[Rfam]
RNA: Small nucleolar RNA SNORA48
Organism: Colobus angolensis
RNA sequence: CCACCCUGACCUGGGCAGAGUGGCAUCUGGUUGGUGGCAUCCAUCUUGCAUCAGUCAGGGACACAGCAACCCCUUGUUCAUCCCAGCUUGGUUUCUGGCCUGUGCCCAUGCCUUGGACAAACAG
Number, nucleotide and partner (000 for none) at each position: 001c000002c000003a000004c060005c059006c058007u057008g056009a000010c000011c054012u053013g052014g051015g000016c000017a000018g047019a046020g045021u000022g041023g040024c000025a000026u037027c036028u000029g000030g000031u000032u000033g000034g000035u000036g027037g026038c000039a000040u023041c022042c000043a000044u000045c020046u019047u018048g000049c000050a000051u014052c013053a012054g011055u000056c008057a007058g006059g005060g004061a000062c000063a000064c000065a000066g000067c000068a000069a000070c000071c000072c000073c000074u000075u119076g118077u117078u116079c115080a114081u000082c000083c000084c000085a000086g000087c000088u000089u000090g112091g111092u110093u000094u000095c000096u108097g107098g105099c104100c000101u000102g000103u000104g099105c098106c000107c097108a096109u000110g092111c091112c090113u000114u080115g079116g078117a077118c076119a075120a000121a000122c000123a000124g000